[Rfam]
Nucleotides: 150
Stems, first nucleotide, its partner, number of pairs: 001022002033115004042053004056106005063081003066077003083096005125143008
Number, partner (000 for none) and nucleotide at each position: 001022g002021c003000a004000u005000c006000a007000a008000c009000a010000a011000g012000c013000g014000c015000c016000g017000a018000a019000u020000g021002g022001c023000g024000c025000a026000c027000u028000u029000a030000c031000c032000g033115g034114c035113a036112a037000g038000u039000c040000g041000c042053g043052u044051u045050u046000g047000g048000g049000a050045g051044g052043a053042c054000g055000u056106g057105a058104u059103c060102u061000u062000c063081g064080g065079c066077g067076c068075g069000c070000c071000a072000a073000g074000g075068c076067g077066c078000a079065g080064c081063c082000u083096c084095g085094g086093u087092c088000c089000a090000a091000g092087g093086a094085c095084c096083g097000a098000u099000g100000u101000a102060a103059g104058a105057u106056c107000c108000a109000g110000g111000c112036u113035u114034g115033c116000g117000a118000u119000c120000u121000a122000a123000a124000a125143u126142g127141c128140g129139a130138g131137g132136c133000a134000g135000u136132g137131c138130c139129u140128c141127g142126c143125a144000u145000u146000u147000u148000u149000u150000u